[Rfam]
RNA: Hfq-regulated sRNA 1
RNA sequence: AAAAAAAACCCCUCCAUCAUGGAGGGGAAGACAGGGAUGGUGUCUAUGGCAAGGAAAACAGGGUUUGUUA
Numbered sequence: 001a002a003a004a005a006a007a008a009c010c011c012c013u014c015c016a017u018c019a020u021g022g023a024g025g026g027g028a029a030g031a032c033a034g035g036g037a038u039g040g041u042g043u044c045u046a047u048g049g050c051a052a053g054g055a056a057a058a059c060a061g062g063g064u065u066u067g068u069u070a
Stems, first nucleotide, its partner, number of pairs: 009027007030069004035064001043062002047058001